[Rfam]
RNA sequence: AUGCACCGUCCGUAAUAGGCUGCACCAAACUUGAUCCAGCCUUGAGCGACAGUGCAUAAAUCGAAAGCUGAUUUUAAUCAGCGGCGGCCAGACAACCGCUGAGAUGGAUCCACAGAUGGGGGCUUUUGUGCCUGUCUACUAAUUCCAUCUCACAAUU
Numbered sequence: 001a002u003g004c005a006c007c008g009u010c011c012g013u014a015a016u017a018g019g020c021u022g023c024a025c026c027a028a029a030c031u032u033g034a035u036c037c038a039g040c041c042u043u044g045a046g047c048g049a050c051a052g053u054g055c056a057u058a059a060a061u062c063g064a065a066a067g068c069u070g071a072u073u074u075u076a077a078u079c080a081g082c083g084g085c086g087g088c089c090a091g092a093c094a095a096c097c098g099c100u101g102a103g104a105u106g107g108a109u110c111c112a113c114a115g116a117u118g119g120g121g122g123c124u125u126u127u128g129u130g131c132c133u134g135u136c137u138a139c140u141a142a143u144u145c146c147a148u149c150u151c152a153c154a155a156u157u
Stems, first nucleotide, its partner, number of pairs: 002056005009048001011046001013044002017042006024035001026033002101151008119133003
small nucleolar RNA snoR143: a 157-nucleotide RNA sequence from Olea europaea. Rfam classes the family as an H/ACA-box small nucleolar RNA. Rfam 15.1 lists 660 matches to the family in 212 species.